This 97-nucleotide RNA from Daucus carota belongs to the Rfam family "Small nucleolar RNA Z157/R69/R10". The family is grouped with related families in Rfam's "SNORD52 clan". Rfam links the family to the GO terms nucleolus and RNA processing. Taxonomically the source falls in Daucus carota (Eukaryota, Pentapetalae, Apiaceae, Scandiceae). A search with the family's covariance model found it, with a score of 68 bits.
Nucleotides: 097
Stems, first nucleotide, its partner, number of pairs: 001097004007092003036069004044061005
Number, partner (000 for none) and nucleotide at each position: 001097g002096a003095u004094u005000a006000u007092u008091g009090c010000g011000g012000u013000g014000a015000u016000g017000a018000g019000g020000c021000u022000u023000a024000u025000g026000u027000g028000g029000a030000c031000u032000a033000g034000a035000g036069u037068u038067u039066c040000u041000g042000a043000u044061c045060u046059g047058g048057g049000u050000u051000u052000a053000a054000u055000c056000c057048c058047c059046c060045a061044g062000u063000u064000c065000u066039g067038a068037a069036g070000a071000c072000a073000a074000c075000c076000c077000c078000u079000u080000g081000g082000c083000u084000g085000u086000c087000u088000g089000a090009g091008c092007a093000c094004a095003a096002u097001c